[Rfam]
RNA sequence: GGGAAAUGAGGAAUGGUAGAAACUCGCUUUUUAUUGCGAGAAGAGCGUUCCGCCCCAAAGCCUGUUACGACAACUGGGCGCUCUCUUUUUUACACCAUCUGAUCCC
Numbered sequence: 001g002g003g004a005a006a007u008g009a010g011g012a013a014u015g016g017u018a019g020a021a022a023c024u025c026g027c028u029u030u031u032u033a034u035u036g037c038g039a040g041a042a043g044a045g046c047g048u049u050c051c052g053c054c055c056c057a058a059a060g061c062c063u064g065u066u067a068c069g070a071c072a073a074c075u076g077g078g079c080g081c082u083c084u085c086u087u088u089u090u091u092a093c094a095c096c097a098u099c100u101g102a103u104c105c106c
Base pairs, nucleotide, nucleotide: 001106002105003104004103014097015096016095017094023040024039025038026037027036042084043083044082045081046080047079049078050077062076064074065073

The record is a 106-nucleotide sequence from Microthlaspi erraticum, which matches "Small nucleolar RNA Z279/snoR105/snoR108" in Rfam.
It scores 99 bits against the family's covariance model.
Rfam's curators write: This family includes the plant snoRNAs known as Z279, snoR105 and snoR108.
The source organism's lineage runs through Eukaryota, Viridiplantae, Streptophytina, Gunneridae and Microthlaspi.
Gene Ontology terms of the family: RNA processing and nucleolus.